Description
A member of the RNA family "Gammaproteobacterial sRNA STnc100" from Escherichia coli, 209 nucleotides long. The base pairs follow the family's consensus structure, which was predicted with CMfinder. The sequence is in the family's curated seed alignment. By type it is a small RNA.
RNA sequence: ACAUGCUGAGCGUUUGUUAAAAAAAUCCUGCAUGAUGAAUCCCCCUGAGCGGCGGGGCAUAAUGACAGAUGUUUGGUUGCGUAUUGUAUAGGCAAGUUGCGGAUUCUGUCUGGUCAUUGCAGAAUUCACCGGGAGGCACCCGGCAUCAUGCUGUAUACAGAGAUUAGGCAUAUAUCCAGGCUUCUCAUCGCAGGAGCCUUUUUACAUGC
Number, nucleotide and partner (000 for none) at each position: 001a000002c000003a000004u000005g000006c000007u000008g000009a000010g000011c000012g000013u000014u160015u159016g158017u000018u000019a000020a000021a000022a000023a000024a000025a000026u000027c000028c000029u000030g151031c150032a149033u148034g147035a146036u145037g144038a000039a000040u000041c000042c057043c056044c055045c054046u000047g000048a000049g000050c000051g000052g000053c000054g045055g044056g043057g042058c000059a000060u000061a000062a089063u088064g087065a000066c000067a000068g000069a000070u000071g000072u000073u000074u000075g000076g000077u000078u000079g000080c000081g000082u000083a000084u000085u000086g000087u064088a063089u062090a000091g000092g100093c099094a098095a000096g000097u000098u094099g093100c092101g127102g126103a125104u124105u000106c122107u121108g120109u000110c000111u000112g000113g000114u000115c000116a000117u000118u000119g000120c108121a107122g106123a000124a104125u103126u102127c101128a000129c143130c142131g141132g140133g139134a000135g000136g000137c000138a000139c133140c132141c131142g130143g129144c037145a036146u035147c034148a033149u032150g031151c030152u000153g000154u000155a000156u000157a000158c016159a015160g014161a000162g000163a000164u000165u000166a000167g000168g209169c208170a207171u206172a000173u000174a000175u000176c000177c000178a199179g198180g197181c196182u195183u194184c193185u192186c000187a000188u000189c000190g000191c000192a185193g184194g183195a182196g181197c180198c179199u178200u000201u000202u000203u000204a000205c000206a171207u170208g169209c168